[Rfam]
RNA sequence: GUUGUAAAUAUGAGGCCACAGAAGAAGCCCUUAUGGUGUGGCCAUGUCAGAUUCCAACAAAACUGUGAAUUCUACU
Number, nucleotide and partner (000 for none) at each position: 001g000002u000003u000004g000005u000006a000007a000008a000009u000010a000011u000012g000013a000014g043015g042016c041017c040018a000019c000020a076021g075022a000023a073024g072025a071026a070027g039028c038029c000030c000031u000032u000033a000034u000035g000036g000037u000038g028039u027040g017041g016042c015043c014044a000045u000046g000047u000048c065049a064050g063051a000052u061053u060054c000055c000056a000057a000058c000059a000060a053061a052062a000063c050064u049065g048066u000067g000068a000069a000070u026071u025072c024073u023074a000075c021076u020
RNA: Mammalian CPEB3 ribozyme
Organism: Alligator mississippiensis